A member of the RNA family "permuted transfer-messenger RNA" from Parcubacteria group bacterium ADurb.Bin216, 249 nucleotides long. From the family's description: Bacterial tmRNA, also known as 10Sa RNA or SsrA, is named for its dual tRNA and mRNA-like properties. Its role is to liberate the mRNA from a stalled ribosome. To accomplish this part of the tmRNA is used as a reading frame that ends in a translation stop signal. The family's consensus secondary structure is taken from published work. It is annotated as a non-coding RNA gene. It is one of the family's seed sequences.
RNA sequence: AACUGUAUGAAGUAAGUAGAAACGUAUUCAAGACGCGAGUUCAAUUCUCGCCAGGUCCACCAGUUAGUAGCUUACGGCGACCGAUAAGGACUGUCAUAAAGCUAAGAGCCUUUGACUAAGCUACUAGCUAAUGGGCCUGACCUGGUUUCGAUUGGGUAAUUAGUAUACGAAUGGACAGUUCGCCAAGAAAGGCGUUAAAAUCGCAAAACUAUAAAUGCAAACGACAACGUUUUCGCAUUAGCAGCCUAA
Numbered sequence: 001a002a003c004u005g006u007a008u009g010a011a012g013u014a015a016g017u018a019g020a021a022a023c024g025u026a027u028u029c030a031a032g033a034c035g036c037g038a039g040u041u042c043a044a045u046u047c048u049c050g051c052c053a054g055g056u057c058c059a060c061c062a063g064u065u066a067g068u069a070g071c072u073u074a075c076g077g078c079g080a081c082c083g084a085u086a087a088g089g090a091c092u093g094u095c096a097u098a099a100a101g102c103u104a105a106g107a108g109c110c111u112u113u114g115a116c117u118a119a120g121c122u123a124c125u126a127g128c129u130a131a132u133g134g135g136c137c138u139g140a141c142c143u144g145g146u147u148u149c150g151a152u153u154g155g156g157u158a159a160u161u162a163g164u165a166u167a168c169g170a171a172u173g174g175a176c177a178g179u180u181c182g183c184c185a186a187g188a189a190a191g192g193c194g195u196u197a198a199a200a201u202c203g204c205a206a207a208a209c210u211a212u213a214a215a216u217g218c219a220a221a222c223g224a225c226a227a228c229g230u231u232u233u234c235g236c237a238u239u240a241g242c243a244g245c246c247u248a249a
Base pairs, nucleotide, nucleotide: 001180002179003178004177005176016168017167025158026157027156029154030153031152035051036050037049038048039047052139053138054137055136056135057134058133181194182193183192184191